Description:
Shown here is a 114-nucleotide RNA from Coturnix japonica, a member of the family "Potassium channel RNA editing signal". The organism belongs to Coturnix, within Eukaryota. The family's RNA type in Rfam is cis-regulatory element. This family represents a group of sequences related to the human potassium channel Kv1.1 hairpin element which directs the efficient modification of an adenosine to inosine by an adenosine deaminase acting on RNA (ADAR). The ADAR modification causes an isoleucine/valine recoding event which lies in the ion-conducting pore of the potassium channel. The family's consensus secondary structure is taken from published work.
RNA sequence: CUGGGCUAUGGGGAUAUGUACCCUAUGACUUGGUCUGGGAUGUUGGUGGGGGCUCUGUGUGCCCUGGCGGGGGUCCUCACUAUCGCCAUGCCCGUCCCCGUUAUCGUCAAUAAC
Numbered sequence: 001c002u003g004g005g006c007u008a009u010g011g012g013g014a015u016a017u018g019u020a021c022c023c024u025a026u027g028a029c030u031u032g033g034u035c036u037g038g039g040a041u042g043u044u045g046g047u048g049g050g051g052g053c054u055c056u057g058u059g060u061g062c063c064c065u066g067g068c069g070g071g072g073g074u075c076c077u078c079a080c081u082a083u084c085g086c087c088a089u090g091c092c093c094g095u096c097c098c099c100g101u102u103a104u105c106g107u108c109a110a111u112a113a114c
Stems, first nucleotide, its partner, number of pairs: 002113001004111001008107004013102003018097001020095002037077004049063002